[Rfam]
RNA sequence: AACAAGUGAAUAUGCUUACCGUAGACAGCAGGUGCUUGGAUGCUCCAAGCUUAAUCUCCUGCCGAGGUGUUAUGAUAAACGUUCGAUAUUCGAAGCUUUACGGCUAGUGAAUAUGGGAAUCAUCAUGCCUUCGCGUUGUCUGCGAAGGCAUUUUCGUUUUCAGGC
Numbered sequence: 001a002a003c004a005a006g007u008g009a010a011u012a013u014g015c016u017u018a019c020c021g022u023a024g025a026c027a028g029c030a031g032g033u034g035c036u037u038g039g040a041u042g043c044u045c046c047a048a049g050c051u052u053a054a055u056c057u058c059c060u061g062c063c064g065a066g067g068u069g070u071u072a073u074g075a076u077a078a079a080c081g082u083u084c085g086a087u088a089u090u091c092g093a094a095g096c097u098u099u100a101c102g103g104c105u106a107g108u109g110a111a112u113a114u115g116g117g118a119a120u121c122a123u124c125a126u127g128c129c130u131u132c133g134c135g136u137u138g139u140c141u142g143c144g145a146a147g148g149c150a151u152u153u154u155c156g157u158u159u160u161c162a163g164g165c
Base pairs, nucleotide, nucleotide: 028062029061030060031059032058034050035049036048037047038046039045040044126150127149128148129147130146131145132144133143134142135141
RNA: Ribosomal protein L10 leader